This 68-nucleotide sequence from Lactonifactor longoviformis belongs to the Rfam family "S4-Clostridia ribosomal protein leader". A search with the family's covariance model found it, with a score of 45 bits. Clan: Ribosomal Protein S4 Leader clan. On this family, see Eckert and Weinberg, BMC Microbiol 2020: "Discovery of 20 novel ribosomal leader candidates in bacteria and archaea".
RNA sequence: GAAAGGCUGCGGACCUGUCUGCGGCUGGGUGUGAAAAUGCCCCGUCAGCUUUUCAUACCUCAAUUAGG
Numbered sequence: 001g002a003a004a005g006g007c008u009g010c011g012g013a014c015c016u017g018u019c020u021g022c023g024g025c026u027g028g029g030u031g032u033g034a035a036a037a038u039g040c041c042c043c044g045u046c047a048g049c050u051u052u053u054c055a056u057a058c059c060u061c062a063a064u065u066a067g068g
Stems, first nucleotide, its partner, number of pairs: 005026007027060011